Shown here is an 84-nucleotide sequence from Chitinivorax tropicus, a member of the family "Burkholderia RNA 7 (anti-hemB)". The organism belongs to Chitinivorax, within Bacteria. Rfam classes the family as a small RNA. The base pairs follow the family's consensus structure, which is taken from published work. Its family is annotated with bacterial biofilm matrix and protein binding in the Gene Ontology. The match comes from Rfam's covariance-model search (70 bits). A reference for the family is Weinberg et al. (2007), "Identification of 22 candidate structured RNAs in bacteria using the CMfinder comparative genomics pipeline", Nucleic Acids Res. About the family: This RNA motif was identified by computational search in b-proteobacteria Burkholderia.
[Rfam]
RNA sequence: CCUCCCGCUUCUCCUCCCUGAGCGGGUGCCUUACUCGUUAAGGCGUUUCACCCCGGCUUUCCCCUUUAGGCCGGGGUUUUUCUU
Numbered sequence: 001c002c003u004c005c006c007g008c009u010u011c012u013c014c015u016c017c018c019u020g021a022g023c024g025g026g027u028g029c030c031u032u033a034c035u036c037g038u039u040a041a042g043g044c045g046u047u048u049c050a051c052c053c054c055g056g057c058u059u060u061c062c063c064c065u066u067u068a069g070g071c072c073g074g075g076g077u078u079u080u081u082c083u084u
Base pairs, nucleotide, nucleotide: 004026005025006024007023008022009021028044029043030042031041032040033039051076052075053074054073055072056071057070058069